[Rfam]
RNA sequence: CCCUAUGAUGGUGAUGGGGUGCCACCAAUGCUUGCAGAUUUCCGGGAUUAAUACUGGUUUUCACAACACAACCGCCGGGACUUUCUGGCUGAUGACUCCUGUUUCAAG
Dot-bracket structure: .........[[[[..(((((..]]]]...............................................((((((....)))))).....))))).........